[Rfam]
RNA sequence: AUUCUGUUUCAGGGCGGGGUGAAAUUCCCCACUGGCGGUAAUCGAAGUCCGUCGGCAAACGCGUCGCACAACGCAGCUCGCCGGCAUUUCGUCAGUCCGCGACCCUGGCGCUGCGCGCCAGGCUGAUUCGGUGAAAACCCGAAACCAACGGUCACAGUCCGGAUGGAAGAGGCAGGGU
Numbered sequence: 001a002u003u004c005u006g007u008u009u010c011a012g013g014g015c016g017g018g019g020u021g022a023a024a025u026u027c028c029c030c031a032c033u034g035g036c037g038g039u040a041a042u043c044g045a046a047g048u049c050c051g052u053c054g055g056c057a058a059a060c061g062c063g064u065c066g067c068a069c070a071a072c073g074c075a076g077c078u079c080g081c082c083g084g085c086a087u088u089u090c091g092u093c094a095g096u097c098c099g100c101g102a103c104c105c106u107g108g109c110g111c112u113g114c115g116c117g118c119c120a121g122g123c124u125g126a127u128u129c130g131g132u133g134a135a136a137a138c139c140c141g142a143a144a145c146c147a148a149c150g151g152u153c154a155c156a157g158u159c160c161g162g163a164u165g166g167a168a169g170a171g172g173c174a175g176g177g178u
Stems, first nucleotide, its partner, number of pairs: 003176008017029003031158002033147002035100004104122002127143005149161003
This 178-nucleotide RNA from Slackia piriformis belongs to the Rfam family "FMN riboswitch aptamer (RFN element)".
Taxonomically the source falls in Slackia piriformis (Bacteria, Bacillati, Actinomycetota, Coriobacteriia).
The base pairs follow the family's consensus structure, which is taken from published work.